The family of this 145-nucleotide RNA from Clavibacter michiganensis is "FMN riboswitch aptamer (RFN element)".
[Rfam]
RNA sequence: CACGUGCUCCGGGGUCGGUGGAAAUCCGAGCCGGCGGUGACAGUCCGCGAACGGACGAUGCGCGACCGGGUCCCCGGGAGCCUCGUCCGCCGAUCCGGUGGGAAUCCGGGACCGACGGUGAGAGUCCGGAUGGGAGGCGCACGCG
Numbered sequence: 001c002a003c004g005u006g007c008u009c010c011g012g013g014g015u016c017g018g019u020g021g022a023a024a025u026c027c028g029a030g031c032c033g034g035c036g037g038u039g040a041c042a043g044u045c046c047g048c049g050a051a052c053g054g055a056c057g058a059u060g061c062g063c064g065a066c067c068g069g070g071u072c073c074c075c076g077g078g079a080g081c082c083u084c085g086u087c088c089g090c091c092g093a094u095c096c097g098g099u100g101g102g103a104a105u106c107c108g109g110g111a112c113c114g115a116c117g118g119u120g121a122g123a124g125u126c127c128g129g130a131u132g133g134g135a136g137g138c139g140c141a142c143g144c145g
Stems, first nucleotide, its partner, number of pairs: 003143005009137002016028003030125002032114002034048004043112002052089007094110005116128003